[Rfam]
RNA: TPP riboswitch aptamer (THI element)
Organism: Limosilactobacillus fermentum
RNA sequence: AAUAGUUGCUAGGGGUGUCGGACCACCGACUGAGACGCCAAUUGGCGGACCCUUUGAACCUGGGAGUUUGGACUCGCGGAGGGAAGCAACGGUCGGCGAAA
Numbered sequence: 001a002a003u004a005g006u007u008g009c010u011a012g013g014g015g016u017g018u019c020g021g022a023c024c025a026c027c028g029a030c031u032g033a034g035a036c037g038c039c040a041a042u043u044g045g046c047g048g049a050c051c052c053u054u055u056g057a058a059c060c061u062g063g064g065a066g067u068u069u070g071g072a073c074u075c076g077c078g079g080a081g082g083g084a085a086g087c088a089a090c091g092g093u094c095g096g097c098g099a100a101a
Base pairs, nucleotide, nucleotide: 006089007088008087009086010085011053012052013051014050016047017030018029019028020027021026037046038045039044059082060081061080064075065074066073
Dot-bracket structure: .....(((((((((.((((((....)))))......(((....))))..)))).....(((..(((......)))....)))..)))))............